[Rfam]
Nucleotides: 122
Stems, first nucleotide, its partner, number of pairs: 015089004020084010031073003035069001038051004053063003092116010
Number, partner (000 for none) and nucleotide at each position: 001000c002000a003000u004000u005000c006000a007000u008000u009000c010000a011000a012000a013000c014000u015089g016088u017087u018086c019000u020084u021083u022082u023081u024080u025079g026078g027077c028076u029075u030000c031073u032072u033071u034000u035069u036000u037000c038051c039050a040049u041048c042000c043000u044000a045000a046000c047000u048041g049040g050039u051038g052000g053063g054062g055061c056000u057000a058000g059000a060000u061055g062054u063053c064000g065000u066000u067000u068000u069035a070000a071033a072032a073031a074000u075029a076028a077027g078026c079025c080024a081023a082022a083021a084020a085000c086018g087017g088016a089015c090000a091000g092116a093115a094114a095113g096112c097111c098110u099109c100108c101107c102000a103000c104000u105000c106000u107101g108100g109099g110098g111097g112096g113095c114094u115093u116092u117000u118000u119000u120000a121000u122000a
Shown here is a 122-nucleotide RNA sequence from Vibrio rumoiensis, a member of the family "Phenylalanine leader peptide".
Pairs were carried over by alignment from the consensus structure, which was predicted with CMfinder.